A member of the RNA family "MIR2655 microRNA precursor family" from Trifolium subterraneum, 254 nucleotides long. The base pairs follow the family's consensus structure, which was predicted with RNAalifold. The family has 25 seed sequences and 892 matches in Rfam 15.1. A search with the family's covariance model found it, with a score of 127 bits.
RNA sequence: CCCUUAUCUUUUAAAAGUUUCAAGUUGGUCCCUUAUCUUUAUUUUAGGUUUCAAGUUGGUCCCUUCCGUCAAUUUUUUAACUAUUUCCGUUAAAUUUGGACACGUGGCAAACUGAUUUGGAUACGUGGCACACUUGAACAGGUGACACAUGUCCAGAUUUAACGGUAACAGUAAAAAAAUUGACGGAAGAGACCAACUUGAAACCUAAAAAAAAGAUAAGGGACCAACUUGAAACCUAAAAUAAAGAUAAGGGA
Dot-bracket structure: .(((((((..............(((.(((.((((((((((.((.(((.............................................................................................................................................................))).)).)))))))))).))).)))................)))))))..